This 214-nucleotide sequence from Blastochloris viridis belongs to the Rfam family "Alphaproteobacterial sRNA ar45".
RNA sequence: GCCCAAUUUCGCACGUGCCUGUGGCCGCGUGCCGGUCGGUGGGCAUCCGGACAAGAGGCCGGACAGCCGCCCGGGGAUCAAAGGACGAGAGGCACCUCUCCGGUGCCAGGGUAUCUCGACCUCCCCGUCAAUCGACCGGCAGCUGGAGGCGAACCAGCAAUCUCCUGCUCUCCGCAGGGGGACGCGGCUUGAAGCAACGACGUAGCGGGCUUUU
Numbered sequence: 001g002c003c004c005a006a007u008u009u010c011g012c013a014c015g016u017g018c019c020u021g022u023g024g025c026c027g028c029g030u031g032c033c034g035g036u037c038g039g040u041g042g043g044c045a046u047c048c049g050g051a052c053a054a055g056a057g058g059c060c061g062g063a064c065a066g067c068c069g070c071c072c073g074g075g076g077a078u079c080a081a082a083g084g085a086c087g088a089g090a091g092g093c094a095c096c097u098c099u100c101c102g103g104u105g106c107c108a109g110g111g112u113a114u115c116u117c118g119a120c121c122u123c124c125c126c127g128u129c130a131a132u133c134g135a136c137c138g139g140c141a142g143c144u145g146g147a148g149g150c151g152a153a154c155c156a157g158c159a160a161u162c163u164c165c166u167g168c169u170c171u172c173c174g175c176a177g178g179g180g181g182a183c184g185c186g187g188c189u190u191g192a193a194g195c196a197a198c199g200a201c202g203u204a205g206c207g208g209g210c211u212u213u214u
Stems, first nucleotide, its partner, number of pairs: 001210004009200003016196003023189008038071005046063005095181004101174003105170001
A reference for the family is del Val et al. (2012), "A survey of sRNA families in alpha-proteobacteria", RNA Biol. A search with the family's covariance model found it, with a score of 58 bits. NCBI's taxonomy places the organism under Bacteria, Pseudomonadati, Pseudomonadota, Hyphomicrobiales, Blastochloris.